[Rfam]
RNA sequence: CCCACACCCAUGUGUGUAAGACCCCAAAGGAUCAUCAUUAAAUUUAGCACAGAUCUCUAGAAAAGUUAUCACAUAAAUGUGAAAAUUGACUUUUUUAAAGAUCAGUGCCAAAUUUAUUAAUGAUCCUUUGGGGUCCUACACACAUAGGUGUGGG
Numbered sequence: 001c002c003c004a005c006a007c008c009c010a011u012g013u014g015u016g017u018a019a020g021a022c023c024c025c026a027a028a029g030g031a032u033c034a035u036c037a038u039u040a041a042a043u044u045u046a047g048c049a050c051a052g053a054u055c056u057c058u059a060g061a062a063a064a065g066u067u068a069u070c071a072c073a074u075a076a077a078u079g080u081g082a083a084a085a086u087u088g089a090c091u092u093u094u095u096u097a098a099a100g101a102u103c104a105g106u107g108c109c110a111a112a113u114u115u116a117u118u119a120a121u122g123a124u125c126c127u128u129u130g131g132g133g134u135c136c137u138a139c140a141c142a143c144a145u146a147g148g149u150g151u152g153g154g
Stems, first nucleotide, its partner, number of pairs: 002153007010145004015140004020135009030125003034121002037118001039116007047108004052103005058097011069082005
Background:
Shown here is a 154-nucleotide sequence from Amborella trichopoda, a member of the family "MIR8565 microRNA precursor family". The family's consensus secondary structure was predicted with RNAalifold. Rfam links the family to the GO terms RISC complex and miRNA-mediated post-transcriptional gene silencing.